The family of this 136-nucleotide RNA sequence from Pyrus ussuriensis x Pyrus communis is "small nucleolar RNA snoR137".
The family has 4 seed sequences and 808 matches in Rfam 15.1.
The literature on the family includes a 2009 paper in Nucleic Acids Res by Chen and Wu, "Mining small RNA sequencing data: a new approach to identify small nucleolar RNAs in Arabidopsis".

RNA sequence: GUUGAUUCUUAUGGUGAUCUCCCUGUAAAUUUCAUUGGUUAGGGAUGAUCAAGUUUUCGAAGAAUAGACAGAAUUUCCAGUACUAAACAGCACUGUGCAUUUUUGCUUGCACUAUGUUACAUCUCCUGAUACAUGU
Number, nucleotide and partner (000 for none) at each position: 001g000002u000003u064004g000005a000006u061007u060008c059009u000010u000011a000012u000013g000014g000015u051016g050017a049018u048019c047020u045021c044022c043023c042024u041025g000026u000027a000028a000029a000030u000031u000032u000033c000034a000035u000036u000037g000038g000039u000040u000041a024042g023043g022044g021045a020046u000047g019048a018049u017050c016051a015052a000053g000054u000055u000056u000057u000058c000059g008060a007061a006062g000063a000064a003065u000066a000067g000068a000069c000070a000071g000072a000073a000074u000075u000076u000077c000078c128079a127080g126081u000082a124083c000084u000085a000086a000087a000088c000089a118090g117091c116092a000093c000094u000095g112096u111097g110098c000099a000100u000101u000102u000103u000104u000105g000106c000107u000108u000109g000110c097111a096112c095113u000114a000115u000116g091117u090118u089119a000120c000121a000122u000123c000124u082125c000126c080127u079128g078129a000130u000131a000132c000133a000134u000135g000136u000